[Rfam]
RNA sequence: GUGCGUUAGGGAUAGAAACGGUAUCCUUUUUUUGCUGCCAUAUAUGGCAAAAAAAGAUUUUAGUGGAUAGCCCGACCCUUG
Numbered sequence: 001g002u003g004c005g006u007u008a009g010g011g012a013u014a015g016a017a018a019c020g021g022u023a024u025c026c027u028u029u030u031u032u033u034g035c036u037g038c039c040a041u042a043u044a045u046g047g048c049a050a051a052a053a054a055a056g057a058u059u060u061u062a063g064u065g066g067a068u069a070g071c072c073c074g075a076c077c078c079u080u081g
Stems, first nucleotide, its partner, number of pairs: 009073003013069002018064002023058003029053008
Annotation: This 81-nucleotide RNA belongs to the Rfam family "Flavo-1 RNA".